Rfam assigns this 105-nucleotide RNA sequence from Myceligenerans xiligouense to the family "TPP riboswitch aptamer (THI element)". NCBI's taxonomy places the organism under Bacteria, Bacillati, Actinomycetes, Micrococcales, Myceligenerans. A search with the family's covariance model found it, with a score of 58 bits.

RNA sequence: UCGAUCCCACGGGUGCCCUCGCAAGGGCUGAGAUCGGGCUGUCGCGGCCCGGACCGUCGAACCUGACCGGGUAAUUCCGGCGUAGGAAGUUGGAGAGUGAUGACC
Number, nucleotide and partner (000 for none) at each position: 001u000002c000003g000004a000005u094006c093007c092008c000009a090010c056011g055012g000013g000014u000015g028016c027017c026018c025019u024020c000021g000022c000023a000024a019025g018026g017027g016028c015029u000030g000031a000032g000033a000034u000035c051036g050037g049038g048039c047040u046041g045042u000043c000044g000045c041046g040047g039048c038049c037050c036051g035052g000053a000054c000055c011056g010057u000058c000059g000060a000061a000062c086063c085064u084065g083066a000067c080068c079069g078070g077071g000072u000073a000074a000075u000076u000077c070078c069079g068080g067081c000082g000083u065084a064085g063086g062087a000088a000089g000090u009091u000092g007093g006094a005095g000096a000097g000098u000099g000100a000101u000102g000103a000104c000105c000